This 87-nucleotide sequence from Bacillus subtilis belongs to the Rfam family "BsrC". A reference for the family is Saito et al. (2008), "Novel small RNA-encoding genes in the intergenic regions of Bacillus subtilis", Gene.
[Rfam]
RNA sequence: UGAACACAAGACAACGAAAGCCCUACCUCUCAAUCGUCACUGCGGCUCCGAAGCCGCGCCGGUGUGAAUUGUAAAACAAAAAAGUCU
Numbered sequence: 001u002g003a004a005c006a007c008a009a010g011a012c013a014a015c016g017a018a019a020g021c022c023c024u025a026c027c028u029c030u031c032a033a034u035c036g037u038c039a040c041u042g043c044g045g046c047u048c049c050g051a052a053g054c055c056g057c058g059c060c061g062g063u064g065u066g067a068a069u070u071g072u073a074a075a076a077c078a079a080a081a082a083a084g085u086c087u
Stems, first nucleotide, its partner, number of pairs: 034067003040061001041058007
Notes:
Pairs were carried over by alignment from the consensus structure, which was predicted with CMfinder. Rfam classes the family as a small RNA. The 301 nucleotide sequence from Kouji Nakamura has been trimmed to a highly conserved ~85 nucleotide long core to form this family. Taxonomically the source falls in Bacillus (Bacteria, Bacillati, Caryophanales, Bacillaceae). It is one of the family's seed sequences.